[Rfam]
RNA sequence: ACACGCGAAGGGAGGUGGUCCUAAGAAUGAAUUCUUACCGGACUCGUGAGGUGGCGGCGGGCUGACCGCCAACCACUAGCUAUGUGGGCAAGUGGUCGGCCAAUCCAACGCCGCCACCGGACCCGCGGGCAGCCAGGUAGUCCGCCUGGCCCUGGAUCGUUGCCAUCCGGCACCGGACAGGAAGCGCCCGCGGGUUUCUUCUG
Dot-bracket structure: ..............((.((..................................)).)).(((((((.((...(((.........)))....)).))))))).................((((((((((((.((((((.......))))))...................................))))))))))))......